[Rfam]
RNA sequence: CAAAACACCCAUCAAAGGAGUAUUUCCUCGUCCAGGAGUUAUUUUACCACAUUAUAAAUUU
Numbered sequence: 001c002a003a004a005a006c007a008c009c010c011a012u013c014a015a016a017g018g019a020g021u022a023u024u025u026c027c028u029c030g031u032c033c034a035g036g037a038g039u040u041a042u043u044u045u046a047c048c049a050c051a052u053u054a055u056a057a058a059u060u061u
Base pairs, nucleotide, nucleotide: 017045018044019043020042021041022040024038025037026036027035
Rfam assigns this 61-nucleotide sequence from Rhodamnia argentea to the family "Plastid-psbN 5UTR RNA". Taxonomically the source falls in Rhodamnia (Eukaryota, Streptophytina, Myrtaceae, Myrtoideae). On this family, see Richter et al., Plant Commun 2023: "Retrograde signaling in plants: A critical review focusing on the GUN pathway and beyond". From the family's description: Plastid psbN is a non-coding RNA (ncRNA) recognised in plastids. It was reported as a conserved 11 stem-loop in the prime untranslated region (5UTR) of psbN genes. It has been reported that the motif is retained in a subset of mature transcripts in barley, which can suggests a possible role in transcript alternative 5 prime processing. The base pairs follow the family's consensus structure, which was predicted with LocARNA. Rfam 15.1 lists 2,345 matches to the family in 397 species.